[Rfam]
Nucleotides: 098
Base pairs, nucleotide, nucleotide: 010085011084012083015080016079018077019076021074022073023072024071025070027068028067029066030065032062033061035059036058037057038056039055040054041053042052
Number, partner (000 for none) and nucleotide at each position: 001000u002000c003000u004000a005000g006000c007000g008000c009000c010085u011084g012083g013000c014000a015080u016079c017000u018077g019076a020000c021074u022073c023072c024071c025070a026000g027068c028067c029066g030065a031000g032062c033061g034000c035059c036058c037057u038056g039055c040054c041053u042052u043000a044000c045000u046000u047000c048000c049000c050000c051000g052042g053041a054040g055039g056038c057037a058036g059035g060000u061033c062032g063000a064000a065030u066029c067028g068027g069000a070025u071024g072023g073022g074021g075000a076019u077018c078000a079016g080015a081000a082000a083012c084011c085010a086000g087000g088000a089000g090000c091000c092000a093000a094000c095000c096000g097000g098000g

Description:
The record is a 98-nucleotide RNA sequence from Homoserinimonas hongtaonis, which matches "mraW RNA" in Rfam. It scores 58 bits against the family's covariance model. NCBI's taxonomy places the organism under Bacteria, Bacillati, Actinomycetota, Microbacteriaceae, Homoserinimonas. The family's RNA type in Rfam is cis-regulatory element. Pairs were carried over by alignment from the consensus structure, which is taken from published work.